[Rfam]
A member of the RNA family "mir-484 microRNA precursor family" from Nannospalax galili, 67 nucleotides long.
On this family, see Fu et al., FEBS Lett 2005: "Identification of human fetal liver miRNAs by a novel method".
Pairs were carried over by alignment from the consensus structure, which was predicted with RNAalifold.
RNA sequence: UCGUCAGGCUCAGUCCCCUCCCGAUAAACCUCUAAAUAGGGGUCUUCCUGGGGGGCGACCCCGGUUU
Number, nucleotide and partner (000 for none) at each position: 001u000002c000003g065004u064005c063006a000007g061008g060009c000010u058011c057012a000013g056014u055015c054016c053017c052018c051019u050020c000021c000022c000023g047024a046025u000026a045027a000028a000029c000030c041031u040032c039033u038034a000035a000036a000037u000038a033039g032040g031041g030042g000043u000044c000045u026046u024047c023048c000049u000050g019051g018052g017053g016054g015055g014056c013057g011058a010059c000060c008061c007062c000063g005064g004065u003066u000067u000